This 341-nucleotide sequence from Isachenkonia alkalipeptolytica belongs to the Rfam family "Bacterial RNase P class A". NCBI's taxonomy places the organism under Bacteria, Bacillati, Bacillota, Clostridia, Isachenkonia. It scores 296 bits against the family's covariance model. The literature on the family includes a 1999 paper in Nucleic Acids Res by Brown, "The Ribonuclease P Database". By type it is a ribozyme.

[Rfam]
RNA sequence: CGAGUAAAUCAAAUGGUCGCGUUAACCGCAGAGUUAACGAGGAAAGUCCGAGCUCUACAGGGCAGGGUGCUGGGUAACUCCCAGUGGAGGUGACUCUAAGGACAGUGCAACAGAAAGAUACCGCCUUCUAUGAAGGUAAGGUUGGAAUGGUGAGGUAAGAGCUCACCAGAGGCUAGGUGACUAGUCUGCUAUGUAAACCCCACCUAGAGCAAGACCAAGUAGGGACUAGAAAUGCGGCUGCCCGUCGUGUCCCGUGGUAGGUUGCUUGAACUUGCUGGCAACAGCAAGUCUAGAUAGAUGACCAUUUAAUACAGAACUCGGCUUACAGAUUUGCUCGCUCU
Numbered sequence: 001c002g003a004g005u006a007a008a009u010c011a012a013a014u015g016g017u018c019g020c021g022u023u024a025a026c027c028g029c030a031g032a033g034u035u036a037a038c039g040a041g042g043a044a045a046g047u048c049c050g051a052g053c054u055c056u057a058c059a060g061g062g063c064a065g066g067g068u069g070c071u072g073g074g075u076a077a078c079u080c081c082c083a084g085u086g087g088a089g090g091u092g093a094c095u096c097u098a099a100g101g102a103c104a105g106u107g108c109a110a111c112a113g114a115a116a117g118a119u120a121c122c123g124c125c126u127u128c129u130a131u132g133a134a135g136g137u138a139a140g141g142u143u144g145g146a147a148u149g150g151u152g153a154g155g156u157a158a159g160a161g162c163u164c165a166c167c168a169g170a171g172g173c174u175a176g177g178u179g180a181c182u183a184g185u186c187u188g189c190u191a192u193g194u195a196a197a198c199c200c201c202a203c204c205u206a207g208a209g210c211a212a213g214a215c216c217a218a219g220u221a222g223g224g225a226c227u228a229g230a231a232a233u234g235c236g237g238c239u240g241c242c243c244g245u246c247g248u249g250u251c252c253c254g255u256g257g258u259a260g261g262u263u264g265c266u267u268g269a270a271c272u273u274g275c276u277g278g279c280a281a282c283a284g285c286a287a288g289u290c291u292a293g294a295u296a297g298a299u300g301a302c303c304a305u306u307u308a309a310u311a312c313a314g315a316a317c318u319c320g321g322c323u324u325a326c327a328g329a330u331u332u333g334c335u336c337g338c339u340c341u
Base pairs, nucleotide, nucleotide: 001337002336003335004334005333006332007331008330009329010328012306013305014304015303016302017301018300020039021038022037023036024035025034026033044324045323046322048321049320050319051318052317053209054208055207056206060243061242062241063240065205066204067203068202069201070084071083072082073081074080085099086097087096088095089094100200101199105198106197107194108193109192121141122140123137124136125135126134127133128132149167150166151165152164153163154162169189170187171186172185173184174183175182176181213263214262215261216260224253234248235247236246237245238244270289271288272287273286274285275284276283277282